[Rfam]
RNA sequence: UGGUAGAUGCACCCUGAUAACUAACUCCCCUAGUAGACUAACAUCAUCUGGGGGUUUUUUAU
Numbered sequence: 001u002g003g004u005a006g007a008u009g010c011a012c013c014c015u016g017a018u019a020a021c022u023a024a025c026u027c028c029c030c031u032a033g034u035a036g037a038c039u040a041a042c043a044u045c046a047u048c049u050g051g052g053g054g055u056u057u058u059u060u061a062u
Stems, first nucleotide, its partner, number of pairs: 002013003027054007036045002
RNA: Nitrogen stress-induced RNA 1
Organism: Nostoc punctiforme